[Rfam]
RNA sequence: UGCUAGCAAUUGUAAGUCGCUUUGGAUAAAAGCGUCUGCUAAAUGACUAAAU
Dot-bracket structure: ..........((((...((((((.....))))))..))).)...........

UnaL2 LINE 3' element: a 52-nucleotide sequence from Sinocyclocheilus anshuiensis. Rfam's curators write: The eel long interspersed element (LINE) UnaL2 and its partner short interspersed element (SINE) share a conserved 3' tail containing a stem-loop that is critical for their retrotransposition. Presumably, the first step of retrotransposition is the recognition of their 3' tails by UnaL2-encoded reverse transcriptase. A reference for the family is Baba et al. (2004), "Solution structure of an RNA stem-loop derived from the 3' conserved region of eel LINE UnaL2", RNA. Rfam classes the family as a cis-regulatory element.